A member of the RNA family "c-di-GMP-II-GAG riboswitch aptamer", 85 nucleotides long.
It is one of the family's seed sequences.
Clan: c-di-GMP_II riboswitch clan.
On this family, see Weinberg et al., Proc Natl Acad Sci U S A 2017: "Bioinformatic analysis of riboswitch structures uncovers variant classes with altered ligand specificity".
Rfam links the family to the GO terms cyclic-di-GMP binding and regulation of gene expression.

RNA sequence: CACUUGGCGGGAGGCUCUGACACGCGGCCCGAACACCGGCCGCCGGGACCGCGCCGAGCCACUGGCGAGACCGACCCGCGAUACC
Numbered sequence: 001c002a003c004u005u006g007g008c009g010g011g012a013g014g015c016u017c018u019g020a021c022a023c024g025c026g027g028c029c030c031g032a033a034c035a036c037c038g039g040c041c042g043c044c045g046g047g048a049c050c051g052c053g054c055c056g057a058g059c060c061a062c063u064g065g066c067g068a069g070a071c072c073g074a075c076c077c078g079c080g081a082u083a084c085c
Base pairs, nucleotide, nucleotide: 005081007079008078009077010076011075013060014059015058023053024052025051026050027049029047038072039071041067042066043065044064